[Rfam]
RNA: Bacillaceae-1 RNA
RNA sequence: UUUUAAGGAUGUUCGACUAAAACCGCUACGUCCUGCAGCAACGUCGAACUGACCCGCGUCGUACGGG
Number, nucleotide and partner (000 for none) at each position: 001u000002u000003u000004u000005a000006a000007g000008g000009a000010u000011g049012u048013u047014c046015g045016a044017c043018u000019a000020a000021a000022a000023c000024c000025g039026c038027u037028a000029c035030g000031u000032c000033c000034u000035g029036c000037a027038g026039c025040a000041a000042c000043g017044u016045c015046g014047a013048a012049c011050u000051g000052a000053c067054c066055c065056g064057c000058g000059u000060c000061g000062u000063a000064c056065g055066g054067g053